[Rfam]
RNA sequence: CACUCCAACAUGAAUGCGAAUUUUCGUUUCUUUUUUUACUUUAGCACCUGACCACAGGGGGCUUGCGCUAAGAGAAGAAACGAAAAAUCGCGCUGAAGGCCUCCCUUGUGGAGGCUUUUUUAUU
Numbered sequence: 001c002a003c004u005c006c007a008a009c010a011u012g013a014a015u016g017c018g019a020a021u022u023u024u025c026g027u028u029u030c031u032u033u034u035u036u037u038a039c040u041u042u043a044g045c046a047c048c049u050g051a052c053c054a055c056a057g058g059g060g061g062c063u064u065g066c067g068c069u070a071a072g073a074g075a076a077g078a079a080a081c082g083a084a085a086a087a088u089c090g091c092g093c094u095g096a097a098g099g100c101c102u103c104c105c106u107u108g109u110g111g112a113g114g115c116u117u118u119u120u121u122a123u124u
Stems, first nucleotide, its partner, number of pairs: 016091004021086014036071003042054001055065004096118009